Purine riboswitch aptamer: a 102-nucleotide sequence from Clostridium tarantellae. Lineage of the source: Bacteria > Clostridia > Eubacteriales > Clostridiaceae > Clostridium.
[Rfam]
RNA sequence: GAAAAAAUACUUUGAAAAAUUCGUAUAUGCUUGAUAAUAUGGUUCAAGCGUUUCUACUAGGAAGCCUUAAACAUCCUAACUACGAAUAUAUGGUUAUUUAUU
Dot-bracket structure: ..................(((((((...((((((.........))))))........(((((.(.......).)))))..)))))))...............